[Rfam]
RNA: Small nucleolar RNA SNORA63
Organism: Sciurus vulgaris
RNA sequence: AAGCAGGAUCUAGUUACAAUGUAGCCAGGAAGUGCUGCAUUGUCUUUGCCCCUGCUCAAAAUAAAACUGUUACCUUCCUGGCCCUGCCUGCCUUGGUGCCCUAGCAGCAGGGAUGCUUGGUCUCAUACAC
Number, nucleotide and partner (000 for none) at each position: 001a000002a000003g055004c054005a053006g052007g051008a000009u000010c000011u000012a000013g000014u000015u000016a043017c042018a041019a040020u039021g038022u037023a036024g035025c034026c000027a000028g000029g000030a000031a000032g000033u000034g025035c024036u023037g022038c021039a020040u019041u018042g017043u016044c000045u000046u000047u000048g000049c000050c000051c007052c006053u005054g004055c003056u000057c000058a000059a000060a000061a000062u000063a000064a000065a000066a000067c000068u000069g000070u000071u000072a000073c000074c000075u000076u000077c000078c000079u000080g000081g000082c000083c111084c110085u109086g108087c000088c107089u106090g105091c104092c000093u000094u000095g000096g000097u000098g000099c000100c000101c000102u000103a000104g091105c090106a089107g088108c086109a085110g084111g083112g000113a000114u000115g000116c000117u000118u000119g000120g000121u000122c000123u000124c000125a000126u000127a000128c000129a000130c000